RNA sequence: UUGACAGUCUUGGAGACUGAAGCCCUCUUUUUAUCCACAGAACAGGUACAGCACAGGCAGUGGGAGUGCAAGCUUCCCCCACACUGCCCCACCAAUGUGCAUCAACCCUGACCUGAAGGGAUCACUUCUAGGGAUGAGAGGGAAUUUAGUCUCCAUGCUCAUUCAGUUAUUGGCCUCU
Numbered sequence: 001u002u003g004a005c006a007g008u009c010u011u012g013g014a015g016a017c018u019g020a021a022g023c024c025c026u027c028u029u030u031u032u033a034u035c036c037a038c039a040g041a042a043c044a045g046g047u048a049c050a051g052c053a054c055a056g057g058c059a060g061u062g063g064g065a066g067u068g069c070a071a072g073c074u075u076c077c078c079c080c081a082c083a084c085u086g087c088c089c090c091a092c093c094a095a096u097g098u099g100c101a102u103c104a105a106c107c108c109u110g111a112c113c114u115g116a117a118g119g120g121a122u123c124a125c126u127u128c129u130a131g132g133g134a135u136g137a138g139a140g141g142g143a144a145u146u147u148a149g150u151c152u153c154c155a156u157g158c159u160c161a162u163u164c165a166g167u168u169a170u171u172g173g174c175c176u177c178u
Base pairs, nucleotide, nucleotide: 002165003164004163007159011155012154013153014152015151016150017149018148019147020146021145024141025140026139027138028137032136033135034134035133038110039109040108048102051100052099053098054097055096062088063087065085066084113131114130115129117127118126119125